Rfam assigns this 48-nucleotide RNA from Enterococcus sp. PFB1-1 to the family "uup RNA". By type it is a cis-regulatory element.
RNA sequence: AGAAAAAUAGCUCUUAACAAAUGAAUGAGAUGAAGCAUUGUUAAGAGC
Numbered sequence: 001a002g003a004a005a006a007a008u009a010g011c012u013c014u015u016a017a018c019a020a021a022u023g024a025a026u027g028a029g030a031u032g033a034a035g036c037a038u039u040g041u042u043a044a045g046a047g048c
Base pairs, nucleotide, nucleotide: 011047012046013045014044015043017041018040019039